[Rfam]
RNA sequence: GGGGGUGUCAGGUUUCGACGGGGGUACUGAACGUGACGGAUCGCGUGCCGGGGCUGCCUACUCAGCCACGUAAAAAUGAGUGGGAAUCAUAGCUGCCAACGACAACAGCUACGGCCAGAUGGCCCUCGCGGCGUAAGAACCCGCGACAUCCCCGCCCGAGAGGCUCCGAUAGGAACGGGGGUGUGAUUACCGGAGCUAGCGUGAGCGCCUCGCCCCGAGCGCACACGUGAAAUGAGGGGAUCGCACCGGAGAGGGCCUGCCGUGGGCAUGCUCCGGGGCUAAAUCAAAUACAGCGGCUACGCACGUAGUGGUCCCACCGGAUGGCUCGCGGACCCGGGUUCAAUUCCCGGCGCCUCCACUC
Numbered sequence: 001g002g003g004g005g006u007g008u009c010a011g012g013u014u015u016c017g018a019c020g021g022g023g024g025u026a027c028u029g030a031a032c033g034u035g036a037c038g039g040a041u042c043g044c045g046u047g048c049c050g051g052g053g054c055u056g057c058c059u060a061c062u063c064a065g066c067c068a069c070g071u072a073a074a075a076a077u078g079a080g081u082g083g084g085a086a087u088c089a090u091a092g093c094u095g096c097c098a099a100c101g102a103c104a105a106c107a108g109c110u111a112c113g114g115c116c117a118g119a120u121g122g123c124c125c126u127c128g129c130g131g132c133g134u135a136a137g138a139a140c141c142c143g144c145g146a147c148a149u150c151c152c153c154g155c156c157c158g159a160g161a162g163g164c165u166c167c168g169a170u171a172g173g174a175a176c177g178g179g180g181g182u183g184u185g186a187u188u189a190c191c192g193g194a195g196c197u198a199g200c201g202u203g204a205g206c207g208c209c210u211c212g213c214c215c216c217g218a219g220c221g222c223a224c225a226c227g228u229g230a231a232a233u234g235a236g237g238g239g240a241u242c243g244c245a246c247c248g249g250a251g252a253g254g255g256c257c258u259g260c261c262g263u264g265g266g267c268a269u270g271c272u273c274c275g276g277g278g279c280u281a282a283a284u285c286a287a288a289u290a291c292a293g294c295g296g297c298u299a300c301g302c303a304c305g306u307a308g309u310g311g312u313c314c315c316a317c318c319g320g321a322u323g324g325c326u327c328g329c330g331g332a333c334c335c336g337g338g339u340u341c342a343a344u345u346c347c348c349g350g351c352g353c354c355u356c357c358a359c360u361c
Base pairs, nucleotide, nucleotide: 001357002356003355004354005353006352007351019330020329022327023326024325025324028321033317034316035315038314039313040312041311042310043309044305045304046303047302048301049070050069052067053066057084058083059082060081061080062079063078126146127145128144129143130142131141147183148182149181150180151179152178156173157172159170163196164195165194166193167192168191199228200227201226202225203224205222206221207220213239214238215237216236243279244278246276247275248274249273250272251271255267256266257265259297260296261295262294264291334350335349336348337347338346
The family of this 361-nucleotide sequence from Nannocystis pusilla is "transfer-messenger RNA". Rfam links the family to the GO term RNA catabolic process. The base pairs follow the family's consensus structure, which is taken from published work. Bacterial tmRNA, also known as 10Sa RNA or SsrA, is named for its dual tRNA and mRNA-like properties. Its role is to liberate the mRNA from a stalled ribosome. To accomplish this part of the tmRNA is used as a reading frame that ends in a translation stop signal. The organism belongs to Nannocystis, within Bacteria.